The record is a 184-nucleotide RNA sequence from Erythrobacter sp. EC-HK427, which matches "MIR1858 microRNA precursor family" in Rfam. Its family is annotated with miRNA-mediated post-transcriptional gene silencing and RISC complex in the Gene Ontology.

RNA sequence: GCUUGGCACCGUCGCCGACAAGGUGGAGCGCGUCGCAAAGCUGGCGCGGUGGCUGGUGGAAGAGGGGAUUGUCAAAGAAUCUCCCCUCCCCACGGGGGAGGGGAGAUUCUUUGACAAUCCCCUCUUCCACCAGCCACCGCGCCAGCUUUGCGACGCGCUCCACCUUGUCGGCGACGGUGCCAAG
Number, nucleotide and partner (000 for none) at each position: 001g000002c000003u183004u182005g181006g180007c179008a000009c177010c176011g175012u174013c173014g172015c171016c170017g169018a168019c167020a000021a165022g164023g163024u162025g161026g160027a159028g158029c157030g156031c155032g154033u153034c152035g151036c150037a149038a148039a147040g146041c145042u144043g143044g142045c141046g140047c139048g138049g137050u136051g135052g134053c133054u132055g000056g130057u129058g128059g127060a126061a125062g124063a123064g122065g121066g120067g119068a118069u117070u116071g115072u114073c113074a000075a111076a110077g109078a108079a107080u106081c105082u104083c103084c102085c101086c100087u099088c098089c097090c096091c000092a000093c000094g000095g000096g090097g089098g088099a087100g086101g085102g084103g083104a082105g081106a080107u079108u078109c077110u076111u075112u000113g073114a072115c071116a070117a069118u068119c067120c066121c065122c064123u063124c062125u061126u060127c059128c058129a057130c056131c000132a054133g053134c052135c051136a050137c049138c048139g047140c046141g045142c044143c043144a042145g041146c040147u039148u038149u037150g036151c035152g034153a033154c032155g031156c030157g029158c028159u027160c026161c025162a024163c023164c022165u021166u000167g019168u018169c017170g016171g015172c014173g013174a012175c011176g010177g009178u000179g007180c006181c005182a004183a003184g000
Pairs were carried over by alignment from the consensus structure, which was predicted with RNAalifold.